Overview:
The family of this 205-nucleotide RNA from Chara braunii is "U2 spliceosomal RNA". The family is grouped with related families in Rfam's "U2 clan". NCBI's taxonomy places the organism under Eukaryota, Viridiplantae, Streptophyta, Characeae, Chara. A reference for the family is Thomas et al. (1990), "The spliceosomal snRNAs of Caenorhabditis elegans", Nucleic Acids Res. By type it is a spliceosomal small nuclear RNA. Its family is annotated with mRNA branch site recognition, U2 snRNP and pre-mRNA branch point binding in the Gene Ontology.
[Rfam]
Nucleotides: 205
Stems, first nucleotide, its partner, number of pairs: 008027003012023004048067006070084006113159003117155004124148005162198001164196004168190005
Number, partner (000 for none) and nucleotide at each position: 001000a002000u003000a004000c005000c006000u007000u008027u009026c010025u011000c012023g013022g014021c015020c016000u017000u018000u019000u020015g021014g022013c023012u024000a025010a026009g027008a028000u029000c030000a031000a032000g033000u034000g035000u036000a037000c038000u039000a040000u041000c042000u043000g044000u045000u046000c047000u048067g049066a050065u051064c052063a053062g054000u055000u056000u057000a058000a059000u060000a061000u062053c063052u064051g065050a066049u067048c068000u069000g070084u071083g072082g073081u074080c075079c076000a077000u078000c079075g080074g081073a082072c083071u084070a085000a086000a087000a088000g089000u090000a091000c092000a093000c094000g095000a096000c097000c098000a099000u100000g101000a102000c103000u104000u105000u106000g107000u108000u109000u110000u111000u112000u113159g114158u115157g116000c117155a118154u119153g120152u121000c122000g123000a124148g125147a126146g127145u128144g129000a130000g131000g132000g133000c134000c135000u136000c137000g138000c139000u140000c141000c142000a143000c144128u145127a146126c147125u148124c149000u150000c151000c152120a153119c154118a155117u156000c157115c158114a159113c160000a161000a162198a163000a164196g165195a166194c167193a168190a169189a170188a171187a172186u173000c174000a175000u176000g177000g178000c179000g180000g181000u182000g183000u184000a185000u186172a187171u188170u189169u190168u191000c192000a193167u194166g195165u196164u197000c198162u199000a200000g201000c202000g203000g204000a205000a

U2 is a small nuclear RNA (snRNA) component of the spliceosome (involved in pre-mRNA splicing). Complementary binding between U2 snRNA (in an area lying towards the 5' end but 3' to hairpin I) and the branchpoint sequence (BPS) of the intron results the bulging out of an unpaired adenosine, on the BPS, which initiates a nucleophilic attack at the intronic 5' splice site, thus starting the first of two transesterification reactions that mediate splicing.